The record is a 233-nucleotide sequence from Dictyobacter aurantiacus, which matches "HNH endonuclease-associated RNA and ORF (HEARO) RNA" in Rfam.
RNA sequence: GUCAUGAACCACCCGCUUAAAAGCGGGGGCUUGCAAACGGACGAAAGGAUGUUUGCAAGCCGAACAUGACCAGACUCAGGUUUGAAAGAGAGCCUACGUUAGGAGCGAAAUUAGGUACGUUGGGGUGCGCGGCCAGUUCCAACCUCUACGGUGGACAAUUAAACAGAGGUAGAUGGUUAACUCAGUGUUGUCCACGUCAAACCGCUCCAUAACCUUGUCGAGGCCACCAAUUC
Numbered sequence: 001g002u003c004a005u006g007a008a009c010c011a012c013c014c015g016c017u018u019a020a021a022a023g024c025g026g027g028g029g030c031u032u033g034c035a036a037a038c039g040g041a042c043g044a045a046a047g048g049a050u051g052u053u054u055g056c057a058a059g060c061c062g063a064a065c066a067u068g069a070c071c072a073g074a075c076u077c078a079g080g081u082u083u084g085a086a087a088g089a090g091a092g093c094c095u096a097c098g099u100u101a102g103g104a105g106c107g108a109a110a111u112u113a114g115g116u117a118c119g120u121u122g123g124g125g126u127g128c129g130c131g132g133c134c135a136g137u138u139c140c141a142a143c144c145u146c147u148a149c150g151g152u153g154g155a156c157a158a159u160u161a162a163a164c165a166g167a168g169g170u171a172g173a174u175g176g177u178u179a180a181c182u183c184a185g186u187g188u189u190g191u192c193c194a195c196g197u198c199a200a201a202c203c204g205c206u207c208c209a210u211a212a213c214c215u216u217g218u219c220g221a222g223g224c225c226a227c228c229a230a231u232u233c
Stems, first nucleotide, its partner, number of pairs: 001070006010029001012026002016023002030059010073219003078095005098213004102208006115149002119143008129227001131225004151195009163186002166183003170179003

The match comes from Rfam's covariance-model search (125 bits). The literature on the family includes a 2009 paper in Nature by Weinberg et al., "Exceptional structured noncoding RNAs revealed by bacterial metagenome analysis". Rfam classes the family as a non-coding RNA gene.